[Rfam]
RNA: Glycine riboswitch aptamer
Organism: Mergibacter septicus
RNA sequence: ACGAAGGUAGCUGGAGAGUAGGGAAGAGACCCUACACCGACGAGGAAAAAUCUUUCAGGUGCUGGUUAUUCCAGCAGGGACUGUUACUGGACG
Numbered sequence: 001a002c003g004a005a006g007g008u009a010g011c012u013g014g015a016g017a018g019u020a021g022g023g024a025a026g027a028g029a030c031c032c033u034a035c036a037c038c039g040a041c042g043a044g045g046a047a048a049a050a051u052c053u054u055u056c057a058g059g060u061g062c063u064g065g066u067u068a069u070u071c072c073a074g075c076a077g078g079g080a081c082u083g084u085u086a087c088u089g090g091a092c093g
Stems, first nucleotide, its partner, number of pairs: 006088006013081001019034004036060003039056002043054003